[Rfam]
Pseudomonas sRNA P27: a 204-nucleotide sequence from Pseudomonas sp. 21C1.
RNA sequence: GGGUUUAACUCCUGCUUGUUACCGUUUCAUCUGGCCGAAGCCGGAUGUCGUUUUGGUGUCUGAUUCGGUAAGAAUCGGGAGCACCAUCUGCGUAGGCGGCCCAGGAUUGCUCCCAGGGUUUAAGGCUUGCGCCACCUACGGUCUUGGAUAGCCCCCGCCAGGCAGGGACCCCAAAGUGUCGAAGCAGCGCAAUCACUUGCGCUA
Numbered sequence: 001g002g003g004u005u006u007a008a009c010u011c012c013u014g015c016u017u018g019u020u021a022c023c024g025u026u027u028c029a030u031c032u033g034g035c036c037g038a039a040g041c042c043g044g045a046u047g048u049c050g051u052u053u054u055g056g057u058g059u060c061u062g063a064u065u066c067g068g069u070a071a072g073a074a075u076c077g078g079g080a081g082c083a084c085c086a087u088c089u090g091c092g093u094a095g096g097c098g099g100c101c102c103a104g105g106a107u108u109g110c111u112c113c114c115a116g117g118g119u120u121u122a123a124g125g126c127u128u129g130c131g132c133c134a135c136c137u138a139c140g141g142u143c144u145u146g147g148a149u150a151g152c153c154c155c156c157g158c159c160a161g162g163c164a165g166g167g168a169c170c171c172c173a174a175a176g177u178g179u180c181g182a183a184g185c186a187g188c189g190c191a192a193u194c195a196c197u198u199g200c201g202c203u204a
Stems, first nucleotide, its partner, number of pairs: 002171002005168002011162004023050002028047008054086006060078007090158003095153003118149010186203006